[Rfam]
RNA: mir-219 microRNA precursor family
RNA sequence: CUGGCUCCUGAUUGUCCAAACGCAAUUCCCGGGGGGUUUGGACCGGAAUUGGGUCUGGACGUCGGGAGUCGG
Numbered sequence: 001c002u003g004g005c006u007c008c009u010g011a012u013u014g015u016c017c018a019a020a021c022g023c024a025a026u027u028c029c030c031g032g033g034g035g036g037u038u039u040g041g042a043c044c045g046g047a048a049u050u051g052g053g054u055c056u057g058g059a060c061g062u063c064g065g066g067a068g069u070c071g072g
Base pairs, nucleotide, nucleotide: 002071003070004069005068006067007066009064010063011062012061014060015059016058017057018056021053023051024050025049026048027047028046029045031043